[Rfam]
RNA: Manganese Mn2+ riboswitch aptamer (yybP-ykoY)
Nucleotides: 173
Stems, first nucleotide, its partner, number of pairs: 026037003039079010056069005080172001082170005
Number, partner (000 for none) and nucleotide at each position: 001000c002000u003000a004000g005000c006000c007000a008000u009000c010000a011000c012000u013000g014000g015000g016000g017000a018000g019000u020000a021000g022000c023000c024000g025000c026037u027036c028035a029000a030000u031000u032000u033000c034000c035028u036027g037026a038000g039079g040078u041077u042076u043075a044074c045073g046072u047071c048070a049000a050000c051000a052000u053000a054000c055000u056069u057068g058067a059066u060065g061000c062000a063000u064000g065060c066059a067058u068057c069056a070048u071047g072046g073045c074044g075043u076042a077041a078040a079039c080172g081000g082170c083169g084168a085167u086166a087000u088000c089000g090000c091000u092000u093000g094000g095000c096000a097000a098000g099000a100000c101000c102000u103000u104000u105000g106000a107000u108000c109000a110000c111000a112000u113000u114000u115000u116000u117000c118000u119000g120000u121000u122000u123000u124000g125000a126000c127000c128000g129000g130000g131000g132000a133000a134000a135000a136000g137000g138000u139000g140000a141000u142000c143000a144000u145000u146000c147000g148000u149000c150000u151000a152000u153000u154000g155000u156000c157000c158000g159000g160000u161000c162000g163000c164000g165000g166086u167085a168084u169083u170082g171000a172080u173000u